[Rfam]
RNA sequence: CCGCCAGAUAACGCAUCGGUCGAUCACCGGUGGCUCAACGGUACCUGACGGUUACAAGUAAAUAUCAUCAGCUGCCUAUUGAGCGGGUUAGCUGCAGACCGGAACGGAGGAUUCUCCGUCGGGACUGUAGUUGGAUUUCUAUACCCAUUUUGCAGCUGACCA
Numbered sequence: 001c002c003g004c005c006a007g008a009u010a011a012c013g014c015a016u017c018g019g020u021c022g023a024u025c026a027c028c029g030g031u032g033g034c035u036c037a038a039c040g041g042u043a044c045c046u047g048a049c050g051g052u053u054a055c056a057a058g059u060a061a062a063u064a065u066c067a068u069c070a071g072c073u074g075c076c077u078a079u080u081g082a083g084c085g086g087g088u089u090a091g092c093u094g095c096a097g098a099c100c101g102g103a104a105c106g107g108a109g110g111a112u113u114c115u116c117c118g119u120c121g122g123g124a125c126u127g128u129a130g131u132u133g134g135a136u137u138u139c140u141a142u143a144c145c146c147a148u149u150u151u152g153c154a155g156c157u158g159a160c161c162a
Stems, first nucleotide, its partner, number of pairs: 001051003005047001007045001009043002012040002014032005033084006069158007091131005104119005
RNA: DUF2800 RNA